The family of this 89-nucleotide RNA from Atribacter laminatus is "NiCo (Nickel/Cobalt) riboswitch aptamer". A reference for the family is Furukawa et al. (2015), "Bacterial riboswitches cooperatively bind Ni(2+) or Co(2+) ions and control expression of heavy metal transporters", Mol Cell. Lineage of the source: Bacteria > Pseudomonadati > Atribacteria > Atribacteraceae > Atribacter. It scores 47 bits against the family's covariance model.

RNA sequence: AAAAUAAAUUUGGAGCAGGCGAUUGAUCUGGAUUGAUCAGGUUAAUGGGGCUGGGCAAAAAGCAACAGGUAAAAACCUGUGGGACCAUU
Numbered sequence: 001a002a003a004a005u006a007a008a009u010u011u012g013g014a015g016c017a018g019g020c021g022a023u024u025g026a027u028c029u030g031g032a033u034u035g036a037u038c039a040g041g042u043u044a045a046u047g048g049g050g051c052u053g054g055g056c057a058a059a060a061a062g063c064a065a066c067a068g069g070u071a072a073a074a075a076c077c078u079g080u081g082g083g084a085c086c087a088u089u
Stems, first nucleotide, its partner, number of pairs: 011087003016083001018052003022046009055063002065080006